[Rfam]
Rfam assigns this 95-nucleotide sequence from Tetracentron sinense to the family "MIR535 microRNA precursor family". The family has 20 seed sequences and 544 matches in Rfam 15.1. The family's consensus secondary structure was predicted with RNAalifold. A reference for the family is Zeng et al. (2010), "Conservation and divergence of microRNAs and their functions in Euphorbiaceous plants", Nucleic Acids Res. It scores 92 bits against the family's covariance model.

RNA sequence: ACCCUUGACUGACGAUGAGAGAGAGCACGCUUGUCGGCAUUCAUGCAAGGUAAAUGACUGUGUACAUGCGUGCUCUCUCUCGUUGUCACUCGAUU
Numbered sequence: 001a002c003c004c005u006u007g008a009c010u011g012a013c014g015a016u017g018a019g020a021g022a023g024a025g026c027a028c029g030c031u032u033g034u035c036g037g038c039a040u041u042c043a044u045g046c047a048a049g050g051u052a053a054a055u056g057a058c059u060g061u062g063u064a065c066a067u068g069c070g071u072g073c074u075c076u077c078u079c080u081c082g083u084u085g086u087c088a089c090u091c092g093a094u095u
Base pairs, nucleotide, nucleotide: 010088011087012086013085014084016082017081020078021077023075025073026072027071028070029069030068032066033065034064